[Rfam]
RNA: mir-548 microRNA precursor family
RNA sequence: UACUAGGUUGGUGCACAAGUGAUUGUGGUUUUUGCCAUUUAAAAUAAUGGUAAAAACCACAAUCACUUGUGCACCAACCUAAUG
Numbered sequence: 001u002a003c004u005a006g007g008u009u010g011g012u013g014c015a016c017a018a019g020u021g022a023u024u025g026u027g028g029u030u031u032u033u034g035c036c037a038u039u040u041a042a043a044a045u046a047a048u049g050g051u052a053a054a055a056a057c058c059a060c061a062a063u064c065a066c067u068u069g070u071g072c073a074c075c076a077a078c079c080u081a082a083u084g
Base pairs, nucleotide, nucleotide: 001084002083004081005080006079007078008077009076010075011074012073013072014071015070016069017068018067019066020065021064022063023062024061025060026059027058028057029056030055031054032053033052034051035050036049037048038047039046